A member of the RNA family "Plastid-atpF group II-D1 intron" from Carnegiea gigantea, 53 nucleotides long. Plastid atpF is a non-coding RNA (ncRNA) recognised in plastids. It has been reported in the intron group II-D1 region of ATP synthase (atpF) genes. For this family Rfam cites "Retrograde signaling in plants: A critical review focusing on the GUN pathway and beyond" (Richter et al., Plant Commun, 2023). The match comes from Rfam's covariance-model search (67 bits). Taxonomically the source falls in Carnegiea (Eukaryota, Embryophyta, Magnoliopsida, Caryophyllales). The base pairs follow the family's consensus structure, which was predicted with LocARNA.
RNA sequence: UCGAAAUUGAUCGAUAUAGAACACUUAUGUCGAUAAAAUAAUUUGAAUCCUUU
Numbered sequence: 001u002c003g004a005a006a007u008u009g010a011u012c013g014a015u016a017u018a019g020a021a022c023a024c025u026u027a028u029g030u031c032g033a034u035a036a037a038a039u040a041a042u043u044u045g046a047a048u049c050c051u052u053u
Stems, first nucleotide, its partner, number of pairs: 011033007
Dot-bracket structure: ..........(((((((.........)))))))....................